[Rfam]
RNA: Small nucleolar RNA R30/Z108
Organism: Oryza sativa
Nucleotides: 096
Stems, first nucleotide, its partner, number of pairs: 006096004
Number, partner (000 for none) and nucleotide at each position: 001000g002000g003000c004000u005000g006096u007095u008094g009093c010000g011000a012000u013000g014000a015000g016000g017000a018000u019000a020000u021000u022000a023000u024000g025000c026000u027000c028000c029000c030000u031000c032000u033000u034000c035000u036000g037000a038000a039000g040000g041000c042000a043000u044000u045000g046000a047000g048000g049000a050000c051000g052000c053000u054000c055000g056000c057000u058000g059000g060000c061000a062000g063000a064000a065000u066000c067000g068000a069000a070000c071000c072000a073000a074000u075000u076000a077000u078000u079000a080000a081000a082000g083000c084000c085000a086000c087000c088000a089000c090000u091000g092000a093009g094008u095007a096006a